[Rfam]
Nucleotides: 100
Stems, first nucleotide, its partner, number of pairs: 002098007009088004014083002017080005023074003027070002029067001031065002034062001037059004042054004
Number, partner (000 for none) and nucleotide at each position: 001000g002098g003097g004096c005095a006094u007093c008092u009088g010087c011086u012085g013000a014083c015082a016000u017080g018079g019078g020077g021076g022000c023074c024073g025072a026000a027070g028069u029067c030000a031065g032064g033000c034062g035000c036000c037059a038058g039057g040056a041000a042054g043053c044052g045051g046000g047000c048000a049000c050000u051045u052044u053043g054042c055000a056040u057039c058038u059037u060000a061000u062034c063000u064032c065031c066000g067029g068000a069028a070027c071000a072025u073024c074023g075000a076021u077020c078019c079018u080017c081000u082015u083014g084000a085012c086011a087010g088009c089000c090000u091000u092008g093007g094006g095005u096004g097003u098002c099000a100000g